[Rfam]
RNA sequence: GAGAGGAGGUCUCUCGUGUCCGGAUAACAGGAUCUGGUCACAAACCAGCCCGUCCUGCGGCGGUCAAGAGCCGUUGUGGGGAGCGUCGGGUGUAAAAGGCGCGGCCCGACCGCGUCAGGU
Numbered sequence: 001g002a003g004a005g006g007a008g009g010u011c012u013c014u015c016g017u018g019u020c021c022g023g024a025u026a027a028c029a030g031g032a033u034c035u036g037g038u039c040a041c042a043a044a045c046c047a048g049c050c051c052g053u054c055c056u057g058c059g060g061c062g063g064u065c066a067a068g069a070g071c072c073g074u075u076g077u078g079g080g081g082a083g084c085g086u087c088g089g090g091u092g093u094a095a096a097a098g099g100c101g102c103g104g105c106c107c108g109a110c111c112g113c114g115u116c117a118g119g120u
Base pairs, nucleotide, nucleotide: 001015002014003013004012005011016041017040018039020037021036023034024033025032046119048091049090050089051088052087054080055079057077058076059075061073062072063071064070098116099115100114101113102112103111

The record is a 120-nucleotide RNA, which matches "Group II catalytic intron D1-D4-2" in Rfam. The literature on the family includes a 2001 paper in Trends Genet by Bonen and Vogel, "The ins and outs of group II introns". It is one of the family's seed sequences. About the family: Group II introns are found in rRNA, tRNA and mRNA of organelles in fungi, plants and protists, and also in mRNA in bacteria.